Source information: Rfam assigns this 148-nucleotide sequence to the family "Small nucleolar RNA SNORA57". Rfam classes the family as an H/ACA-box small nucleolar RNA. From the family's description: U99 belongs to the H/ACA class of snoRNAs which are thought to guide the sites of modification of uridines to pseudouridines, the target for this family is unknown. For this family Rfam cites "Identification of 13 novel human modification guide RNAs" (Vitali et al., Nucleic Acids Res, 2003).
RNA sequence: CCUCCUUUUCUUGGCGGGGACCGGGCGUGCGGUCCCGCUCCCCGUAAUGUACGGAGGUAGAAGAAAGGGCUCUGGCCCUCUCGGCGUUAUGUCUUCGGUGCUUGCGGCUUCCCGUUCGCGGGUUCUAUCCUCAGACGCCGGAACACUU
Numbered sequence: 001c002c003u004c005c006u007u008u009u010c011u012u013g014g015c016g017g018g019g020a021c022c023g024g025g026c027g028u029g030c031g032g033u034c035c036c037g038c039u040c041c042c043c044g045u046a047a048u049g050u051a052c053g054g055a056g057g058u059a060g061a062a063g064a065a066a067g068g069g070c071u072c073u074g075g076c077c078c079u080c081u082c083g084g085c086g087u088u089a090u091g092u093c094u095u096c097g098g099u100g101c102u103u104g105c106g107g108c109u110u111c112c113c114g115u116u117c118g119c120g121g122g123u124u125c126u127a128u129c130c131u132c133a134g135a136c137g138c139c140g141g142a143a144c145a146c147u148u
Stems, first nucleotide, its partner, number of pairs: 001057005015044006022037004082140006101122007